Shown here is a 168-nucleotide RNA from Orycteropus afer, a member of the family "Interferon gamma 5' UTR regulatory element". Its family is annotated with positive regulation of translation in the Gene Ontology. The family's consensus secondary structure is taken from published work. It is annotated as a cis-regulatory element. Rfam describes the family as follows. This family represents a pseudoknot containing stem-loop structure found in the 5' UTR of interferon (IFN) gamma mRNA. This structure is thought to be involved in translational regulation and the pseudoknot has been found to activate PKR which is known to be a translational inhibitor. Mutations in the pseudoknot structure have been found to reduce PKR activation and increase the translation of IFN-gamma.
[Rfam]
RNA sequence: CAGUGUUCUGAUCAUCAGCACAUCUGCUAUUAGGAGAGAAAGAUCAGCCAAGUCUUUUGCCCUGAUCAACUUAAUACAGAAGCUACUGAUUUCAGUGUCUGUGGCCUAACUUUCUCUGCAGCGAUGAGUUAUACAAGUUAUAUCUUAAUUUUUCAGCUUUGCAUCAUU
Numbered sequence: 001c002a003g004u005g006u007u008c009u010g011a012u013c014a015u016c017a018g019c020a021c022a023u024c025u026g027c028u029a030u031u032a033g034g035a036g037a038g039a040a041a042g043a044u045c046a047g048c049c050a051a052g053u054c055u056u057u058u059g060c061c062c063u064g065a066u067c068a069a070c071u072u073a074a075u076a077c078a079g080a081a082g083c084u085a086c087u088g089a090u091u092u093c094a095g096u097g098u099c100u101g102u103g104g105c106c107u108a109a110c111u112u113u114c115u116c117u118g119c120a121g122c123g124a125u126g127a128g129u130u131a132u133a134c135a136a137g138u139u140a141u142a143u144c145u146u147a148a149u150u151u152u153u154c155a156g157c158u159u160u161g162c163a164u165c166a167u168u
Base pairs, nucleotide, nucleotide: 009068010067011066012065013064014063016118017117018116020113022111026105027104028103029102032100033099034098036096041092042091043090044089045088046087047086051084052083053082056080057079058078059077120168121167123165124164125163126162130142131141132140133139147158149156150155